About this RNA:
mir-166 microRNA precursor family: a 135-nucleotide sequence. Rfam 15.1 lists 2,599 matches to the family in 229 species.
RNA sequence: GGUGUCUGGAAUGGAGGCUGAUCCAAGAUCAUUGCUUGGUGCAAAAUACUAGGGCAUUGUUGUAAGUGCCAUUAGUUCUUUUUUGUUUCCGAGUUUGUUAUCGAGGAUCUCGGACCAGGCUUCAUUCCUCACACC
Numbered sequence: 001g002g003u004g005u006c007u008g009g010a011a012u013g014g015a016g017g018c019u020g021a022u023c024c025a026a027g028a029u030c031a032u033u034g035c036u037u038g039g040u041g042c043a044a045a046a047u048a049c050u051a052g053g054g055c056a057u058u059g060u061u062g063u064a065a066g067u068g069c070c071a072u073u074a075g076u077u078c079u080u081u082u083u084u085g086u087u088u089c090c091g092a093g094u095u096u097g098u099u100a101u102c103g104a105g106g107a108u109c110u111c112g113g114a115c116c117a118g119g120c121u122u123c124a125u126u127c128c129u130c131a132c133a134c135c
Stems, first nucleotide, its partner, number of pairs: 001135005008128006016120001018118003024112001026110005
Dot-bracket structure: (((((..((((((..(.(((...(.(((((...........................................................................))))).)...))).)..))))))..)))))